Rfam assigns this 542-nucleotide part of an RNA from Ophiostoma piceae to the family "Eukaryotic small subunit ribosomal RNA". Clan: SSU clan. Lineage of the source: Eukaryota > Opisthokonta > Dikarya > Ophiostomataceae > Ophiostoma piceae. The family's consensus secondary structure is taken from published work. On this family, see Cannone et al., BMC Bioinformatics 2002: "The comparative RNA web (CRW) site: an online database of comparative sequence and structure information for ribosomal, intron, and other RNAs".

[Rfam]
RNA sequence: AAAGUUAUUGUAAUUAAAAAGCUCGUAGUUAAACUUUAAGCUUAACUGGCCGGUCCGCUUUACCGCGUAUACUAGUCCGGCCGGGUCUUUCCCUUUAAAGAGCCGCAUGCCCUUUACUAAGCGUGUCGGGGAAUUAAGAUAUUUACUUUAAAAAAAUUAAAGUGUUUAAAGCAGGCUUAUACUCGAAUAUAUUAAUAUAAAAUAAUAAAAUAAAACGCGCGGUUUUAUUUUAUUAGUUUUUAAAACCGCCGUAAUAAUUAAUAAGGAUAGUCGGGGGCAUUAAUAUUUAAUAAUUAAAGGUGAAAUUUUUAAAUCUAUUAAAGAUUAAUUACUACGAAAACAUUUAUUAAAGAUAUUUUUAUUAAUUAAGAACGAAAAUUAAAAAAUUAAAGACGAUUAAAUACCGUUAUAAUUUUAAUUAUAAAUUAUGCCGAUUAAGGAUCGGACGAUGUUAUUUUUUAAUUCGUUCGGUACCUUAUACGAAAGUAUAAGUUUUUAGGUUUUAAGGGGAGUAUAGUCGUAAAGCUAAAACUUAAAAAAAU
Numbered sequence: 001a002a003a004g005u006u007a008u009u010g011u012a013a014u015u016a017a018a019a020a021g022c023u024c025g026u027a028g029u030u031a032a033a034c035u036u037u038a039a040g041c042u043u044a045a046c047u048g049g050c051c052g053g054u055c056c057g058c059u060u061u062a063c064c065g066c067g068u069a070u071a072c073u074a075g076u077c078c079g080g081c082c083g084g085g086u087c088u089u090u091c092c093c094u095u096u097a098a099a100g101a102g103c104c105g106c107a108u109g110c111c112c113u114u115u116a117c118u119a120a121g122c123g124u125g126u127c128g129g130g131g132a133a134u135u136a137a138g139a140u141a142u143u144u145a146c147u148u149u150a151a152a153a154a155a156a157u158u159a160a161a162g163u164g165u166u167u168a169a170a171g172c173a174g175g176c177u178u179a180u181a182c183u184c185g186a187a188u189a190u191a192u193u194a195a196u197a198u199a200a201a202a203u204a205a206u207a208a209a210a211u212a213a214a215a216c217g218c219g220c221g222g223u224u225u226u227a228u229u230u231u232a233u234u235a236g237u238u239u240u241u242a243a244a245a246c247c248g249c250c251g252u253a254a255u256a257a258u259u260a261a262u263a264a265g266g267a268u269a270g271u272c273g274g275g276g277g278c279a280u281u282a283a284u285a286u287u288u289a290a291u292a293a294u295u296a297a298a299g300g301u302g303a304a305a306u307u308u309u310u311a312a313a314u315c316u317a318u319u320a321a322a323g324a325u326u327a328a329u330u331a332c333u334a335c336g337a338a339a340a341c342a343u344u345u346a347u348u349a350a351a352g353a354u355a356u357u358u359u360u361a362u363u364a365a366u367u368a369a370g371a372a373c374g375a376a377a378a379u380u381a382a383a384a385a386a387u388u389a390a391a392g393a394c395g396a397u398u399a400a401a402u403a404c405c406g407u408u409a410u411a412a413u414u415u416u417a418a419u420u421a422u423a424a425a426u427u428a429u430g431c432c433g434a435u436u437a438a439g440g441a442u443c444g445g446a447c448g449a450u451g452u453u454a455u456u457u458u459u460u461a462a463u464u465c466g467u468u469c470g471g472u473a474c475c476u477u478a479u480a481c482g483a484a485a486g487u488a489u490a491a492g493u494u495u496u497u498a499g500g501u502u503u504u505a506a507g508g509g510g511a512g513u514a515u516a517g518u519c520g521u522a523a524a525g526c527u528a529a530a531a532c533u534u535a536a537a538a539a540a541a542u
Stems, first nucleotide, its partner, number of pairs: 011505003019502001021373001023371002028366003264360004268355002271352001276348002279345001282326002286322007297308003378419006388412001392408004430501003433494003437476001439474001442471008451463003480487002507534003516527003